[Rfam]
RNA: Guanidine-I riboswitch aptamer
RNA sequence: GAAAAUGUUUUCUAGGGUUCCGCAGCUGCAGCUGGUCUGGUCCGAGAGAAAACUCACAGUAUUCACUGUGUCACGGAAGGAUAAAAGCCUGGGAGAA
Numbered sequence: 001g002a003a004a005a006u007g008u009u010u011u012c013u014a015g016g017g018u019u020c021c022g023c024a025g026c027u028g029c030a031g032c033u034g035g036u037c038u039g040g041u042c043c044g045a046g047a048g049a050a051a052a053c054u055c056a057c058a059g060u061a062u063u064c065a066c067u068g069u070g071u072c073a074c075g076g077a078a079g080g081a082u083a084a085a086a087g088c089c090u091g092g093g094a095g096a097a
Base pairs, nucleotide, nucleotide: 007053008052009051010050011049012048015043016042020040021039022037023034024033025032026031055070056069057068058067059066060065072092074095078090079089080088